[Rfam]
RNA sequence: CGAUGGCGUUCCCUACACUUUCCCAGUAUUGAAAGCUGUAGUUUUAGUCCAUCGUACAGUAACAAAUUUAACUUCUUCACCUUUAACUGUCCUCAAUGGUGACAGUGGGGUCACAUUGCCUUCCACAGUUAAAGUUUUGCAGGUUAAUACAUAU
Numbered sequence: 001c002g003a004u005g006g007c008g009u010u011c012c013c014u015a016c017a018c019u020u021u022c023c024c025a026g027u028a029u030u031g032a033a034a035g036c037u038g039u040a041g042u043u044u045u046a047g048u049c050c051a052u053c054g055u056a057c058a059g060u061a062a063c064a065a066a067u068u069u070a071a072c073u074u075c076u077u078c079a080c081c082u083u084u085a086a087c088u089g090u091c092c093u094c095a096a097u098g099g100u101g102a103c104a105g106u107g108g109g110g111u112c113a114c115a116u117u118g119c120c121u122u123c124c125a126c127a128g129u130u131a132a133a134g135u136u137u138u139g140c141a142g143g144u145u146a147a148u149a150c151a152u153a154u
Base pairs, nucleotide, nucleotide: 001054002053003052004051005050006049007047013041014040015039016038017037018035019034020033021032069146070145071144072143073142074141081134082133083132084131085130086129087128088127089126090125